[Rfam]
RNA sequence: UCUGGUAGCGAUGAUGACUUAUCUUUUUUCCCCAGCAGACCGACACUGUUGACCCUUUCUAACAAAUAAGCCAAAUGCUCUGAGCAACCAUG
Numbered sequence: 001u002c003u004g005g006u007a008g009c010g011a012u013g014a015u016g017a018c019u020u021a022u023c024u025u026u027u028u029u030c031c032c033c034a035g036c037a038g039a040c041c042g043a044c045a046c047u048g049u050u051g052a053c054c055c056u057u058u059c060u061a062a063c064a065a066a067u068a069a070g071c072c073a074a075a076u077g078c079u080c081u082g083a084g085c086a087a088c089c090a091u092g
Base pairs, nucleotide, nucleotide: 001092003090004089005088006087008085009084
RNA: Small nucleolar SNORD12/SNORD106